[Rfam]
RNA sequence: AAAAGAUGGAGCAGCGACCAUGUCAAAAACGGGCGAAACCGAAAAGCCAUAAGAGUAGGAACCCU
Numbered sequence: 001a002a003a004a005g006a007u008g009g010a011g012c013a014g015c016g017a018c019c020a021u022g023u024c025a026a027a028a029a030c031g032g033g034c035g036a037a038a039c040c041g042a043a044a045a046g047c048c049a050u051a052a053g054a055g056u057a058g059g060a061a062c063c064c065u
Stems, first nucleotide, its partner, number of pairs: 006021004032048003039059002
RNA: DUF805 RNA
Organism: Taibaiella chishuiensis